[Rfam]
Notes:
Shown here is a 96-nucleotide RNA sequence, a member of the family "SAM-I/IV (S-adenosyl methionine) riboswitch aptamer". For this family Rfam cites "The aptamer core of SAM-IV riboswitches mimics the ligand-binding site of SAM-I riboswitches" (Weinberg et al., RNA, 2008).
RNA sequence: AUCUUGCAUCCCGAACCCUUUAGUGGGUGCCAACCGAGCAGAGAAGCCACGGUGGCAAAACGAUGCGGGCAUUAUGCCAAAACAUAUUCCGAGACA
Numbered sequence: 001a002u003c004u005u006g007c008a009u010c011c012c013g014a015a016c017c018c019u020u021u022a023g024u025g026g027g028u029g030c031c032a033a034c035c036g037a038g039c040a041g042a043g044a045a046g047c048c049a050c051g052g053u054g055g056c057a058a059a060a061c062g063a064u065g066c067g068g069g070c071a072u073u074a075u076g077c078c079a080a081a082a083c084a085u086a087u088u089c090c091g092a093g094a095c096a
Base pairs, nucleotide, nucleotide: 006066007065008064009063010062015028016027017026018025029056030055031054034052035051036050038047039046043089044088045087068078069077070076071075